[Rfam]
RNA: R2 RNA element
RNA sequence: AGUUAAGUCGAGCUUAAGAAUCGAAACAGAUGCUUCGGCUGAAGAGGACCCUAGUUGGUCCUAAAACGGCCUGAGGUAAAGGGUUUUAGUCGGUAGGUCCGAGGACUUCUUCCUCGGGAAUCCGACACUACCCAGUCGUACGGACGGCUGGGUGUCUUCUGAAGAUUUCCCCUCUUCCACGAAA
Dot-bracket structure: ......................................................((.((.............((((....(((.....(((((....((((((((.....))))))))...))))).(.(((((..............))))))..............)))..)))).)).)).